A member of the RNA family "TPP riboswitch aptamer (THI element)" from Paenibacillus apis, 113 nucleotides long. Rfam 15.1 lists 16,130 matches to the family in 8,693 species.
RNA sequence: UACAUAGUUCGGGGGAGCUGGAAUAAGGCCGGCUGAGAUUGUAUCCCAUCAAGAUACUGACCCUUUAACCUGAUCUGGGUAAUGCCAGCGUAGGAAGAAUGACAGAGCAUGGC
Numbered sequence: 001u002a003c004a005u006a007g008u009u010c011g012g013g014g015g016a017g018c019u020g021g022a023a024u025a026a027g028g029c030c031g032g033c034u035g036a037g038a039u040u041g042u043a044u045c046c047c048a049u050c051a052a053g054a055u056a057c058u059g060a061c062c063c064u065u066u067a068a069c070c071u072g073a074u075c076u077g078g079g080u081a082a083u084g085c086c087a088g089c090g091u092a093g094g095a096a097g098a099a100u101g102a103c104a105g106a107g108c109a110u111g112g113c
Stems, first nucleotide, its partner, number of pairs: 007100004011064004016058001017033005041057004069094004075088004